Description:
The family of this 81-nucleotide sequence from Clostridium tagluense is "c-di-GMP-I riboswitch aptamer". Its Rfam clan is "c-di-GMP_I riboswitch clan". The match comes from Rfam's covariance-model search (62 bits). The family's consensus secondary structure is taken from published work.

RNA sequence: UACCGAUAAUAGCAAACUUAUCGAAAGGUAAGGACGCAAAGCCAUAGGGCCUUACUUAGGUAUGGUAGCCUAGCCACCGAA
Numbered sequence: 001u002a003c004c005g006a007u008a009a010u011a012g013c014a015a016a017c018u019u020a021u022c023g024a025a026a027g028g029u030a031a032g033g034a035c036g037c038a039a040a041g042c043c044a045u046a047g048g049g050c051c052u053u054a055c056u057u058a059g060g061u062a063u064g065g066u067a068g069c070c071u072a073g074c075c076a077c078c079g080a081a
Base pairs, nucleotide, nucleotide: 012037013036017032018031019030020029021028022027041074042073046071047070048069049066050065051064053062054061055060